[Rfam]
RNA sequence: AGACGGCUUUGGAAUGACACGAUCACUCCCGCUGAGCGCGCAGCCGAGCAGCCAUCGGGGAUGUCGUGUCUGCCCGAAGCUCUUU
Numbered sequence: 001a002g003a004c005g006g007c008u009u010u011g012g013a014a015u016g017a018c019a020c021g022a023u024c025a026c027u028c029c030c031g032c033u034g035a036g037c038g039c040g041c042a043g044c045c046g047a048g049c050a051g052c053c054a055u056c057g058g059g060g061a062u063g064u065c066g067u068g069u070c071u072g073c074c075c076g077a078a079g080c081u082c083u084u085u
Stems, first nucleotide, its partner, number of pairs: 006080002009077004016070008027060005033054002036052002
The record is an 85-nucleotide RNA sequence from Coturnix japonica, which matches "mir-425 microRNA precursor family" in Rfam. For this family Rfam cites "In vitro and in silico annotation of conserved and nonconserved microRNAs in the genome of the marsupial Monodelphis domestica" (Devor and Samollow, J Hered, 2008). The family's consensus secondary structure was predicted with RNAalifold.